RNA sequence: GUUUGAAUGAUGACUUGGAUUGUCGGAUACCCCUACACCCGCCUCAUGGGUGAGACGAAAUAGUCUGACAAAC
Numbered sequence: 001g002u003u004u005g006a007a008u009g010a011u012g013a014c015u016u017g018g019a020u021u022g023u024c025g026g027a028u029a030c031c032c033c034u035a036c037a038c039c040c041g042c043c044u045c046a047u048g049g050g051u052g053a054g055a056c057g058a059a060a061u062a063g064u065c066u067g068a069c070a071a072a073c
Stems, first nucleotide, its partner, number of pairs: 001073005